Shown here is a 116-nucleotide RNA sequence from Papaver nudicaule, a member of the family "Small nucleolar RNA snoR104". Rfam links the family to the GO terms nucleolus and RNA processing. A reference for the family is Marker et al. (2002), "Experimental RNomics: identification of 140 candidates for small non-messenger RNAs in the plant Arabidopsis thaliana", Curr Biol. Pairs were carried over by alignment from the consensus structure, which was predicted with WAR.
RNA sequence: GGGGUGCAUCAGAAAACGAUGUCACUCGAUACAAUCUUCCUACAAAAAGAAUCCGCAGUUUCCUGCUCACAGAUCUGAAAGCAAGUUCUGCGAGUCUCAAAUUGCUGAACAUUUCA
Dot-bracket structure: (((..(((((.......)))))..)))........................(.(..........((((.(((..((.......))..))).))))...........).).......